[Rfam]
RNA: Eukaryotic large subunit ribosomal RNA, nucleotides 1809 to 2243
RNA sequence: UGGAACAAUGUAGGCAAGGGAAGUUAGAAAAAUGAAACCGUAACCUCGGGAAGAGGAUUGGCUUUGAGAGUUGGGCACGGGGUCCUAGUCCCGAACACAUCGGUUAUUGAUGGAUUACUCGAGCUCCUUCUCCGGGCAUCGAACAGUCAAUUCAAGACUAGUGCGGACAAGGGGAAUCUGACUAUUUAAUUAAAAAAAAGCAUUGUGAUGGUCCCUACGGAUGUUAAUGCAACGUGAUUUUUGCUCAGUGCUCUGAAUGUCUAAGUGAAGAAAUUCAACCAAACACGUGUAAACGGCGGGACUAACUAUGACUCUCUUAAGAUAGCCAAAUGUCUCAUCAUCUAAUUAGUGACGUGCAUGAAUGGAUUAACAAGAUUUCCAUUGUCCUUGUCUACAAUCCAGUGAAACCAUAGCCAAGGGAACGAGCUUGGCAGA
Dot-bracket structure: ((((....((((((((.(((..............((.((....(....).....)).))((.((((((.((((.((.(((((...............................................))))).))......))))...)))))).))............(((((((((..(.(.........).)..((.(((((...((((....)))).....))))).))...(((.(((..((((.(.(..(((.....((((....)))).....))))).))..)))))((((.(.......).))))(...)................((((.......))))...........)))....)).)))))))....))).)))))))).))))............(((((........)))))....